Actinobacteria sRNA Ms_IGR-7: a 120-nucleotide RNA sequence from Mycobacterium intermedium. A search with the family's covariance model found it, with a score of 111 bits.

[Rfam]
RNA sequence: UGAAAGUGCCUUUCCUGUGCUGGUCGGAUUGUUGCGUCGAGAACACCAAUCUUUCCAGCUCAGAGGGCACUUUCUUCAUUCCGACACCCCGACAACCAGCCAAUUCAUCGGUGGAUCAAG
Numbered sequence: 001u002g003a004a005a006g007u008g009c010c011u012u013u014c015c016u017g018u019g020c021u022g023g024u025c026g027g028a029u030u031g032u033u034g035c036g037u038c039g040a041g042a043a044c045a046c047c048a049a050u051c052u053u054u055c056c057a058g059c060u061c062a063g064a065g066g067g068c069a070c071u072u073u074c075u076u077c078a079u080u081c082c083g084a085c086a087c088c089c090c091g092a093c094a095a096c097c098a099g100c101c102a103a104u105u106c107a108u109c110g111g112u113g114g115a116u117c118a119a120g
Stems, first nucleotide, its partner, number of pairs: 002074012016062002020058004026052004031047001033045002103116005
Dot-bracket structure: .((((((((((((..((..((((..((((.(.((.........)).).))))..))))..))))))))))))))............................(((((....)))))....
The base pairs follow the family's consensus structure.
For this family Rfam cites "Identification of small RNAs in Mycobacterium smegmatis using heterologous Hfq" (Li et al., RNA, 2013).